Rfam assigns this 99-nucleotide sequence from Amborella trichopoda to the family "Small nucleolar RNA Z279/snoR105/snoR108". The base pairs follow the family's consensus structure, which was predicted with PFOLD. The literature on the family includes a 2002 paper in Curr Biol by Marker et al., "Experimental RNomics: identification of 140 candidates for small non-messenger RNAs in the plant Arabidopsis thaliana". Its Rfam clan is "snoU13 clan". This family includes the plant snoRNAs known as Z279, snoR105 and snoR108.

RNA sequence: GGAAGAUGAGGAGUGGUAUUUUCUCACUUGUGAGAUGAGUGUCUGCCCCAUGCCUGGUUACGACAAAUGGGCACUCACAUUCUAAUCCUAUCUGAUUCC
Numbered sequence: 001g002g003a004a005g006a007u008g009a010g011g012a013g014u015g016g017u018a019u020u021u022u023c024u025c026a027c028u029u030g031u032g033a034g035a036u037g038a039g040u041g042u043c044u045g046c047c048c049c050a051u052g053c054c055u056g057g058u059u060a061c062g063a064c065a066a067a068u069g070g071g072c073a074c075u076c077a078c079a080u081u082c083u084a085a086u087c088c089u090a091u092c093u094g095a096u097u098c099c
Stems, first nucleotide, its partner, number of pairs: 001099004014090003018086001023034004036077008055069002058066001